[Rfam]
RNA sequence: CCCGGUUCAGUCCGACCCCCCGGGACUGAACCCACCGGCGGUCCCCGCUCCUCCCCCCUGGCGGGGGCCGCCUUCA
Numbered sequence: 001c002c003c004g005g006u007u008c009a010g011u012c013c014g015a016c017c018c019c020c021c022g023g024g025a026c027u028g029a030a031c032c033c034a035c036c037g038g039c040g041g042u043c044c045c046c047g048c049u050c051c052u053c054c055c056c057c058c059u060g061g062c063g064g065g066g067g068c069c070g071c072c073u074u075c076a
Stems, first nucleotide, its partner, number of pairs: 004032010037072013